[Rfam]
Nucleotides: 200
Stems, first nucleotide, its partner, number of pairs: 026044006047088009063079005090200006
Number, partner (000 for none) and nucleotide at each position: 001000c002000a003000g004000g005000c006000u007000g008000u009000c010000u011000u012000u013000g014000g015000g016000g017000a018000g019000u020000a021000g022000u023000c024000c025000g026044u027043u028042u029041u030040u031039g032000c033000c034000g035000c036000g037000c038000g039031c040030a041029a042028a043027a044026a045000g046000g047088c048087a049086u050085g051084c052083a053082u054081c055080a056000a057000c058000a059000g060000a061000c062000u063079u064078g065077g066076g067075c068000c069000c070000u071000c072000a073000c074000g075067g076066c077065c078064u079063a080055u081054g082053g083052u084051g085050c086049a087048u088047g089000a090200g091199g092198c093197c094196g095195g096000u097000g098000u099000g100000a101000a102000u103000c104000a105000c106000g107000g108000g109000c110000u111000g112000g113000a114000c115000g116000a117000g118000a119000c120000c121000a122000u123000u124000g125000a126000c127000u128000g129000c130000g131000u132000a133000c134000c135000g136000a137000u138000c139000c140000a141000a142000u143000a144000u145000u146000c147000a148000u149000a150000u151000g152000g153000g154000c155000c156000g157000g158000a159000g160000c161000c162000g163000g164000u165000g166000c167000g168000u169000g170000g171000u172000c173000a174000a175000u176000g177000u178000g179000u180000u181000u182000u183000g184000u185000a186000c187000a188000g189000g190000u191000g192000u193000c194000u195095c196094c197093g198092g199091c200090c

The family of this 200-nucleotide RNA from Diaphorobacter aerolatus is "Manganese Mn2+ riboswitch aptamer (yybP-ykoY)". NCBI's taxonomy places the organism under Bacteria, Pseudomonadota, Burkholderiales, Comamonadaceae, Diaphorobacter. From the family's description: This RNA was originally discovered in E. coli during a large scale screen and was named SraF. The family was later found to exist upstream of related families of protein genes in many bacteria, including the the yybP and ykoK genes in B. subtilis. The specific functions of these proteins are unknown, but this structured RNA element may be involved in their genetic regulation as a riboswitch. On this family, see Argaman et al., Curr Biol 2001: "Novel small RNA-encoding genes in the intergenic regions of Escherichia coli". A search with the family's covariance model found it, with a score of 52 bits. Gene Ontology term of the family: manganese ion binding.